This 81-nucleotide RNA from Lachnospiraceae bacterium NK3A20 belongs to the Rfam family "pemK RNA".

RNA sequence: AUAAUGAUACUCCCGCGUUGAACACCCACAAAGCAUUGCGCGGCGCACCCACAAGCAUGGGCCAAGGUGAAACCCCUGUGA
Number, nucleotide and partner (000 for none) at each position: 001a000002u000003a000004a000005u000006g000007a000008u000009a000010c000011u000012c078013c043014c042015g041016c040017g039018u038019u000020g000021a000022a000023c000024a000025c000026c000027c000028a000029c000030a000031a000032a000033g000034c000035a000036u000037u000038g018039c017040g016041c015042g014043g013044c000045g063046c000047a000048c060049c059050c000051a000052c000053a000054a000055g000056c000057a000058u000059g049060g048061g000062c000063c045064a000065a077066g076067g075068u000069g000070a000071a000072a000073c000074c000075c067076c066077u065078g012079u000080g000081a000